[Rfam]
RNA: SAM riboswitch aptamer (S box leader)
RNA sequence: UACUUAUCCAGAAAGACGGAGGGACCGGACCCGAUGAUGUCUUGGCAACCAACCAGCCCAGGGGAAUGGUGCCAAUUUCCUCCCGCCAGCCAGCGGGGUAGAUAAGGU
Numbered sequence: 001u002a003c004u005u006a007u008c009c010a011g012a013a014a015g016a017c018g019g020a021g022g023g024a025c026c027g028g029a030c031c032c033g034a035u036g037a038u039g040u041c042u043u044g045g046c047a048a049c050c051a052a053c054c055a056g057c058c059c060a061g062g063g064g065a066a067u068g069g070u071g072c073c074a075a076u077u078u079c080c081u082c083c084c085g086c087c088a089g090c091c092a093g094c095g096g097g098g099u100a101g102a103u104a105a106g107g108u
Base pairs, nucleotide, nucleotide: 003106004105005104006103007102008101013043014042015041016040017039021032022031023030027080028079029078044073045072046071047070049069050068053063054062077100082097083096084095085094086093